[Rfam]
RNA sequence: ACUGCUUUUCUUAGAAGUCCCCAUAUUGGAGAGCCCGUUAACCCCGCCUCUAUUAGGUUCAAGGUUACCGGGUUUUUUCUU
Numbered sequence: 001a002c003u004g005c006u007u008u009u010c011u012u013a014g015a016a017g018u019c020c021c022c023a024u025a026u027u028g029g030a031g032a033g034c035c036c037g038u039u040a041a042c043c044c045c046g047c048c049u050c051u052a053u054u055a056g057g058u059u060c061a062a063g064g065u066u067a068c069c070g071g072g073u074u075u076u077u078u079c080u081u
Stems, first nucleotide, its partner, number of pairs: 032074006039067005
RNA: RybB RNA